Rfam assigns this 172-nucleotide RNA from Marinospirillum alkaliphilum to the family "Manganese Mn2+ riboswitch aptamer (yybP-ykoY)".
A search with the family's covariance model found it, with a score of 50 bits.
The source organism's lineage runs through Bacteria, Pseudomonadota, Oceanospirillales, Oceanospirillaceae and Marinospirillum alkaliphilum.

[Rfam]
RNA sequence: GGGGAGUAGUUGCUUUGUAAAUCCCUGAUUCCGCAAAGAUUGGUGUCAACAUAUUUGAUCCUCAAUGAUCAUGGCACCAAUAGCCUUUCUCAAGGCCUGACGAGACCUGAACACAAGACACCAGCCGGGGCUGGCGGUGCUUUGUGUUCAGUUUUUGAUCUUGUCGGCCAGC
Numbered sequence: 001g002g003g004g005a006g007u008a009g010u011u012g013c014u015u016u017g018u019a020a021a022u023c024c025c026u027g028a029u030u031c032c033g034c035a036a037a038g039a040u041u042g043g044u045g046u047c048a049a050c051a052u053a054u055u056u057g058a059u060c061c062u063c064a065a066u067g068a069u070c071a072u073g074g075c076a077c078c079a080a081u082a083g084c085c086u087u088u089c090u091c092a093a094g095g096c097c098u099g100a101c102g103a104g105a106c107c108u109g110a111a112c113a114c115a116a117g118a119c120a121c122c123a124g125c126c127g128g129g130g131c132u133g134g135c136g137g138u139g140c141u142u143u144g145u146g147u148u149c150a151g152u153u154u155u156u157g158a159u160c161u162u163g164u165c166g167g168c169c170a171g172c
Base pairs, nucleotide, nucleotide: 014037015036016035017034018033039081040080041079042078043077044076045075046074047073048072056071057070058069059068060067088171